[Rfam]
RNA sequence: ACGAAAGUCGAAGGGGAGUAGCGUUAGGUUUUACCUAAAACAAAGUCGUCAUUACAUGGAUGAUCCAUCGGCUUUGUUGGCACGAUAGUGUCCAGCGAGACCUUUGCCUAUAGGCAAAGGUCUUUUUCUAUUUCCUGCACCUUGCCAAU
Numbered sequence: 001a002c003g004a005a006a007g008u009c010g011a012a013g014g015g016g017a018g019u020a021g022c023g024u025u026a027g028g029u030u031u032u033a034c035c036u037a038a039a040a041c042a043a044a045g046u047c048g049u050c051a052u053u054a055c056a057u058g059g060a061u062g063a064u065c066c067a068u069c070g071g072c073u074u075u076g077u078u079g080g081c082a083c084g085a086u087a088g089u090g091u092c093c094a095g096c097g098a099g100a101c102c103u104u105u106g107c108c109u110a111u112a113g114g115c116a117a118a119g120g121u122c123u124u125u126u127u128c129u130a131u132u133u134c135c136u137g138c139a140c141c142u143u144g145c146c147a148a149u
Stems, first nucleotide, its partner, number of pairs: 025037003039078010056068005085149001